Notes: This 94-nucleotide RNA sequence from Desulfosarcina ovata belongs to the Rfam family "c-di-GMP-I-GGC riboswitch aptamer". On this family, see Weinberg et al., Proc Natl Acad Sci U S A 2017: "Bioinformatic analysis of riboswitch structures uncovers variant classes with altered ligand specificity". The organism belongs to Desulfosarcina ovata, within Bacteria. It scores 61 bits against the family's covariance model.
RNA sequence: CUCGAUAAAGGCAAACCAUACGAAAGUGUGGCGCGCAAAGCCACUGGCCUAAAUCUUCCGCUUGAAAGAAGACAUGGCAGCAGGGCAGCCGAGG
Numbered sequence: 001c002u003c004g005a006u007a008a009a010g011g012c013a014a015a016c017c018a019u020a021c022g023a024a025a026g027u028g029u030g031g032c033g034c035g036c037a038a039a040g041c042c043a044c045u046g047g048c049c050u051a052a053a054u055c056u057u058c059c060g061c062u063u064g065a066a067a068g069a070a071g072a073c074a075u076g077g078c079a080g081c082a083g084g085g086c087a088g089c090c091g092a093g094g
Stems, first nucleotide, its partner, number of pairs: 001094001003091002011036002016031006034080001040086003044083003047078003